[Rfam]
SAM (S-adenosyl methionine) riboswitch aptamer: a 118-nucleotide RNA sequence from Leucobacter exalbidus. Clan: SAM clan. The organism belongs to Leucobacter, within Bacteria. Rfam describes the family as follows. SAM-IV is a mRNA element that regulates gene expression via direct sensing of S-adenosylmethionine (SAM or AdoMet).

RNA sequence: GUUCAAGAGUCGUAACCGUAGGUACCUGGCCGGUUACGCGACAACCCGAAUCCAUCGAUUCCCGGGUGUCCCAGGGGAAGAACGGGUAACGCGAAUUCUCGCGCUACAAGAUUCGAUG
Number, nucleotide and partner (000 for none) at each position: 001g083002u082003u081004c080005a000006a000007g000008a000009g039010u000011c038012g037013u036014a035015a034016c033017c000018g000019u000020a000021g031022g030023u000024a000025c000026c000027u000028g000029g000030c022031c021032g000033g016034u015035u014036a013037c012038g011039c009040g070041a069042c068043a000044a000045c066046c065047c064048g000049a000050a000051u000052c000053c000054a000055u000056c000057g000058a000059u000060u000061c000062c000063c000064g047065g046066g045067u000068g042069u041070c040071c000072c000073a000074g000075g000076g000077g000078a000079a000080g004081a003082a002083c001084g000085g000086g107087u106088a105089a000090c103091g102092c101093g100094a099095a000096u000097u000098c000099u094100c093101g092102c091103g090104c000105u088106a087107c086108a000109a000110g000111a000112u000113u000114c000115g000116a000117u000118g000